[Rfam]
RNA: Small nucleolar RNA Z105
RNA sequence: GCAUAAUGAUGAUGAUGUUAUAAUUAUCCGAUUUAUUUCAUGAAAGGAAUUACUAACCUCCUACUCAUUCUGA
Numbered sequence: 001g002c003a004u005a006a007u008g009a010u011g012a013u014g015a016u017g018u019u020a021u022a023a024u025u026a027u028c029c030g031a032u033u034u035a036u037u038u039c040a041u042g043a044a045a046g047g048a049a050u051u052a053c054u055a056a057c058c059u060c061c062u063a064c065u066c067a068u069u070c071u072g073a
Stems, first nucleotide, its partner, number of pairs: 006068004027048002